[Rfam]
RNA sequence: GGAGCUAGUUUUUAACCUGCUGUUUGUCAACAAGGUUUCCUCCUCGUCAGAGUUAGUAACGAAUUGCUGUGUGUAGUCUUUGCCCAUCCCCUGAGAUGGGCUUUUUUUUAU
Numbered sequence: 001g002g003a004g005c006u007a008g009u010u011u012u013u014a015a016c017c018u019g020c021u022g023u024u025u026g027u028c029a030a031c032a033a034g035g036u037u038u039c040c041u042c043c044u045c046g047u048c049a050g051a052g053u054u055a056g057u058a059a060c061g062a063a064u065u066g067c068u069g070u071g072u073g074u075a076g077u078c079u080u081u082g083c084c085c086a087u088c089c090c091c092u093g094a095g096a097u098g099g100g101c102u103u104u105u106u107u108u109u110a111u
Stems, first nucleotide, its partner, number of pairs: 001021002033047001035045001065073003082101007
This 111-nucleotide RNA sequence from Brenneria rubrifaciens belongs to the Rfam family "RprA RNA". Translational regulation of the stationary phase sigma factor RpoS is mediated by the formation of a double-stranded RNA stem-loop structure in the upstream region of the rpoS messenger RNA, occluding the translation initiation site. The literature on the family includes a 2001 paper in Mol Microbiol by Majdalani et al., "Regulation of RpoS by a novel small RNA: the characterization of RprA". It scores 76 bits against the family's covariance model. Pairs were carried over by alignment from the consensus structure, which was predicted with PFOLD.